[Rfam]
RNA sequence: GAGGCAUCCCCGGGGGGCCGUAUAAAUACGGCUGAGAAUGAGCUGAUUGCUCUAACCCGUCGAACCUGAUCCGGCUUAACACCGGCGUAGGGAGGGAAGGCAUCAGACCU
Dot-bracket structure: ......((((((((.((((((......))))).......((((.....)))))..)))).....((((..((((.......))))..))))..)))).............
Numbered sequence: 001g002a003g004g005c006a007u008c009c010c011c012g013g014g015g016g017g018c019c020g021u022a023u024a025a026a027u028a029c030g031g032c033u034g035a036g037a038a039u040g041a042g043c044u045g046a047u048u049g050c051u052c053u054a055a056c057c058c059g060u061c062g063a064a065c066c067u068g069a070u071c072c073g074g075c076u077u078a079a080c081a082c083c084g085g086c087g088u089a090g091g092g093a094g095g096g097a098a099g100g101c102a103u104c105a106g107a108c109c110u
Stems, first nucleotide, its partner, number of pairs: 007097004011059004016053001017032005040052004065091004071085004
A member of the RNA family "TPP riboswitch aptamer (THI element)" from Zymomonas mobilis, 110 nucleotides long. It scores 70 bits against the family's covariance model.